[Rfam]
RNA sequence: UUGAACACUUUUUGUGCAAAUGCAUGACGAAACUAGUGCAAAGUUCGCUCAAGCAUAAAAAAAAUUGCUCUACUUGCGCUUGGUCAGUUUACUUACUACAAGUAAUGAGUACUAUGUAGUCCGGCUAAUUUCCCAGUCAUGGGAGA
Number, nucleotide and partner (000 for none) at each position: 001u000002u000003g000004a000005a000006c000007a000008c000009u000010u000011u000012u000013u000014g000015u000016g000017c000018a000019a000020a000021u000022g000023c000024a000025u000026g000027a000028c000029g000030a000031a000032a000033c000034u000035a000036g000037u000038g079039c078040a000041a075042a074043g073044u072045u000046c000047g000048c000049u000050c067051a066052a065053g000054c000055a000056u000057a000058a000059a000060a000061a000062a000063a000064a000065u052066u051067g050068c000069u000070c000071u000072a044073c043074u042075u041076g000077c000078g039079c038080u000081u000082g000083g125084u124085c123086a000087g121088u000089u000090u118091a117092c116093u000094u114095a113096c000097u111098a110099c109100a000101a106102g000103u000104a000105a000106u101107g000108a000109g099110u098111a097112c000113u095114a094115u000116g092117u091118a090119g000120u000121c087122c000123g085124g084125c083126u000127a000128a000129u146130u145131u144132c143133c142134c141135a000136g000137u000138c000139a000140u000141g134142g133143g132144a131145g130146a129
RNA: Pseudomonas sRNA P14
Organism: Pseudomonas knackmussii